[Rfam]
RNA sequence: AUAACCGAGAGGGCGGAGCAAUAAUCCGCUCUCCUACGCGGUCAAAGUCUUGGGAGGAUGCGAUCUAGGCGCGAUUUUCCGCCGCCGCCGUCAAACGGAAACAGAUCGGACGCGUUUAAAUUGCAAGGCUUCGGCCUUGCAUUUUUUU
Numbered sequence: 001a002u003a004a005c006c007g008a009g010a011g012g013g014c015g016g017a018g019c020a021a022u023a024a025u026c027c028g029c030u031c032u033c034c035u036a037c038g039c040g041g042u043c044a045a046a047g048u049c050u051u052g053g054g055a056g057g058a059u060g061c062g063a064u065c066u067a068g069g070c071g072c073g074a075u076u077u078u079c080c081g082c083c084g085c086c087g088c089c090g091u092c093a094a095a096c097g098g099a100a101a102c103a104g105a106u107c108g109g110a111c112g113c114g115u116u117u118a119a120a121u122u123g124c125a126a127g128g129c130u131u132c133g134g135c136c137u138u139g140c141a142u143u144u145u146u147u148u
Base pairs, nucleotide, nucleotide: 003148004147011031012030013029014028015027016026037114038113039112040111047059048058049057050056062107063106064105065104066103068086069085070084071082072081073080088098089097090096122141123140124139125138126137127136128135129134